[Rfam]
RNA sequence: UUAACUUUUAUCUUAAAUCACACACAUUCCGACACGUGUUCCGGGGUGCUCCAAGUAUUAGCUUAGGAGUCGGAUGCAUGGGGGAUGUGGAGGCCUAAC
Numbered sequence: 001u002u003a004a005c006u007u008u009u010a011u012c013u014u015a016a017a018u019c020a021c022a023c024a025c026a027u028u029c030c031g032a033c034a035c036g037u038g039u040u041c042c043g044g045g046g047u048g049c050u051c052c053a054a055g056u057a058u059u060a061g062c063u064u065a066g067g068a069g070u071c072g073g074a075u076g077c078a079u080g081g082g083g084g085a086u087g088u089g090g091a092g093g094c095c096u097a098a099c
Stems, first nucleotide, its partner, number of pairs: 023089008035080005040074004048070005
RNA: t44 RNA